Rfam assigns this 114-nucleotide RNA sequence from Austrofundulus limnaeus to the family "Potassium channel RNA editing signal". It scores 111 bits against the family's covariance model. The organism belongs to Austrofundulus, within Eukaryota.
RNA sequence: GUGGGAUACGGGGACAUGCACCCCGUGACGAUCGGGGGCAAAAUUGUGGGCUCUCUGUGCGCGAUCGCCGGCGUGCUGACCAUCGCCCUGCCCGUCCCCGUCAUCGUCUCCAAC
Number, nucleotide and partner (000 for none) at each position: 001g114002u113003g000004g111005g110006a000007u000008a107009c106010g105011g104012g000013g102014a101015c100016a000017u000018g097019c000020a095021c094022c000023c000024c000025g000026u000027g000028a000029c000030g000031a000032u000033c000034g000035g000036g000037g077038g076039c075040a074041a000042a000043a000044u000045u000046g000047u000048g000049g000050g062051c061052u000053c000054u000055c000056u000057g000058u000059g000060c000061g051062c050063g000064a000065u000066c000067g000068c000069c000070g000071g000072c000073g000074u040075g039076c038077u037078g000079a000080c000081c000082a000083u000084c000085g000086c000087c000088c000089u000090g000091c000092c000093c000094g021095u020096c000097c018098c000099c000100g015101u014102c013103a000104u011105c010106g009107u008108c000109u000110c005111c004112a000113a002114c001